A member of the RNA family "SAM riboswitch aptamer (S box leader)" from Cellulomonas sp. PhB143, 104 nucleotides long. The family's consensus secondary structure is taken from published work. A search with the family's covariance model found it, with a score of 50 bits. The source organism's lineage runs through Bacteria, Bacillati, Actinomycetota, Micrococcales and Cellulomonas.
[Rfam]
RNA sequence: ACACCAUCCAGAGCGGUCGAGAGUCCUGGCUCGACGACACCGCAGCAACCCCACCGACGGAAGCCUCCCGAGGGUCAGGGUGCUACAGCCAGGUUCGAUGGAGA
Numbered sequence: 001a002c003a004c005c006a007u008c009c010a011g012a013g014c015g016g017u018c019g020a021g022a023g024u025c026c027u028g029g030c031u032c033g034a035c036g037a038c039a040c041c042g043c044a045g046c047a048a049c050c051c052c053a054c055c056g057a058c059g060g061a062a063g064c065c066u067c068c069c070g071a072g073g074g075u076c077a078g079g080g081u082g083c084u085a086c087a088g089c090c091a092g093g094u095u096c097g098a099u100g101g102a103g104a
Stems, first nucleotide, its partner, number of pairs: 002103001004101005013043005021032003026092004044084004049080002053075003088096001